A member of the RNA family "Alphaproteobacteria transfer-messenger RNA" from Paragemmobacter aquarius, 356 nucleotides long. On this family, see Williams and Bartel, RNA 1996: "Phylogenetic analysis of tmRNA secondary structure". A search with the family's covariance model found it, with a score of 286 bits. The organism belongs to Paragemmobacter, within Bacteria. Clan: tRNA clan.
RNA sequence: GCCCUUGUGACCACGCUUCGGCAUGCCUAUAUUCGAUCCUGUUCGGGGCAACCCGGACUAUGGUGAUAAACGCACCUGUAAUAGACGGCUCGGACCCGGGGGCGGUACCCGGCGACUCCACCAAUCCACCCGGUCAUUGCGGGGGUUCGGGGUCGAAAUAGGAUCGACGAACGUUCAAAGAGGCCAGCUUUUACCCGGUGAGGUACCACCGUUAUCGGUCCAUGAUCACAGUUGCCAAUGACAACAGUGCUCCGAUGGCGCUGGCCGCGUAAGCGGCUCGCAAUAUCAAACCUAAGUCCUUGCGCUUAGCCGCGUAAGGCGGGGUUCGCAGGUACCUGGCAACAGAAACCUGCACU
Numbered sequence: 001g002c003c004c005u006u007g008u009g010a011c012c013a014c015g016c017u018u019c020g021g022c023a024u025g026c027c028u029a030u031a032u033u034c035g036a037u038c039c040u041g042u043u044c045g046g047g048g049c050a051a052c053c054c055g056g057a058c059u060a061u062g063g064u065g066a067u068a069a070a071c072g073c074a075c076c077u078g079u080a081a082u083a084g085a086c087g088g089c090u091c092g093g094a095c096c097c098g099g100g101g102g103c104g105g106u107a108c109c110c111g112g113c114g115a116c117u118c119c120a121c122c123a124a125u126c127c128a129c130c131c132g133g134u135c136a137u138u139g140c141g142g143g144g145g146u147u148c149g150g151g152g153u154c155g156a157a158a159u160a161g162g163a164u165c166g167a168c169g170a171a172c173g174u175u176c177a178a179a180g181a182g183g184c185c186a187g188c189u190u191u192u193a194c195c196c197g198g199u200g201a202g203g204u205a206c207c208a209c210c211g212u213u214a215u216c217g218g219u220c221c222a223u224g225a226u227c228a229c230a231g232u233u234g235c236c237a238a239u240g241a242c243a244a245c246a247g248u249g250c251u252c253c254g255a256u257g258g259c260g261c262u263g264g265c266c267g268c269g270u271a272a273g274c275g276g277c278u279c280g281c282a283a284u285a286u287c288a289a290a291c292c293u294a295a296g297u298c299c300u301u302g303c304g305c306u307u308a309g310c311c312g313c314g315u316a317a318g319g320c321g322g323g324g325u326u327c328g329c330a331g332g333u334a335c336c337u338g339g340c341a342a343c344a345g346a347a348a349c350c351u352g353c354a355c356u
Stems, first nucleotide, its partner, number of pairs: 041058007062195005072188002075183003086173002090170003096112005113155007196211004202221002205219003322337004328353006